The record is a 121-nucleotide RNA sequence, which matches "SAM-I/IV (S-adenosyl methionine) riboswitch aptamer" in Rfam. Rfam links the family to the GO terms S-adenosylmethionine metabolic process and regulation of gene expression. A reference for the family is Weinberg et al. (2008), "The aptamer core of SAM-IV riboswitches mimics the ligand-binding site of SAM-I riboswitches", RNA. It is one of the family's seed sequences. Its Rfam clan is "SAM clan".

RNA sequence: CCAGUGCGUUACGAGUGGUGUGACAGUCACACCCGGCAACCUGGCUCGGUCGCCAAGGUGCCUGCUGACCCGGAAACGGGUUGGGACGCGGCUUCUGAAAGGAGCAACGAAUGACCGGUUU
Numbered sequence: 001c002c003a004g005u006g007c008g009u010u011a012c013g014a015g016u017g018g019u020g021u022g023a024c025a026g027u028c029a030c031a032c033c034c035g036g037c038a039a040c041c042u043g044g045c046u047c048g049g050u051c052g053c054c055a056a057g058g059u060g061c062c063u064g065c066u067g068a069c070c071c072g073g074a075a076a077c078g079g080g081u082u083g084g085g086a087c088g089c090g091g092c093u094u095c096u097g098a099a100a101g102g103a104g105c106a107a108c109g110a111a112u113g114a115c116c117g118g119u120u121u
Stems, first nucleotide, its partner, number of pairs: 006089005015034001017033007035062003040058003043054003047117005091105004